Overview:
The family of this 222-nucleotide sequence from Streptomyces armeniacus is "Actinobacteria sRNA Ms_IGR-5". The pairing is the family consensus, mapped onto this sequence. The organism belongs to Streptomyces, within Bacteria. The literature on the family includes a 2013 paper in RNA by Li et al., "Identification of small RNAs in Mycobacterium smegmatis using heterologous Hfq".
[Rfam]
RNA sequence: ACACGAGAAGGGAGGUGGUUCGGACAGAUGUAUGACAACCGGACGCGUGAGGUGACUGCGGCCUAGGGGCCGUCGUCACAGCGUGACGCCGGCUCUGCCGGCCAAUCCCAUUGCAGUCACCCGGCCCGCGGGCCCGUCGGACUCGUCCGACCGGCGCCCUUCCGCAGCUGCCGAGGCUCCGGCCUCGCCGGCAGGGAGGGAGCAGCCCGCGGGCUGUCUGCU
Numbered sequence: 001a002c003a004c005g006a007g008a009a010g011g012g013a014g015g016u017g018g019u020u021c022g023g024a025c026a027g028a029u030g031u032a033u034g035a036c037a038a039c040c041g042g043a044c045g046c047g048u049g050a051g052g053u054g055a056c057u058g059c060g061g062c063c064u065a066g067g068g069g070c071c072g073u074c075g076u077c078a079c080a081g082c083g084u085g086a087c088g089c090c091g092g093c094u095c096u097g098c099c100g101g102c103c104a105a106u107c108c109c110a111u112u113g114c115a116g117u118c119a120c121c122c123g124g125c126c127c128g129c130g131g132g133c134c135c136g137u138c139g140g141a142c143u144c145g146u147c148c149g150a151c152c153g154g155c156g157c158c159c160u161u162c163c164g165c166a167g168c169u170g171c172c173g174a175g176g177c178u179c180c181g182g183c184c185u186c187g188c189c190g191g192c193a194g195g196g197a198g199g200g201a202g203c204a205g206c207c208c209g210c211g212g213g214c215u216g217u218c219u220g221c222u
Stems, first nucleotide, its partner, number of pairs: 015059005061103001063101001064097004069093004074088003122216012141178001